[Rfam]
The family of this 35-nucleotide sequence from Mus musculus is "Iron response element I".
RNA sequence: CCGUGUCUUACUUCAACAGUGUUUGGACGGAACAG
Numbered sequence: 001c002c003g004u005g006u007c008u009u010a011c012u013u014c015a016a017c018a019g020u021g022u023u024u025g026g027a028c029g030g031a032a033c034a035g
Stems, first nucleotide, its partner, number of pairs: 001035001003033002006031003012027005017021001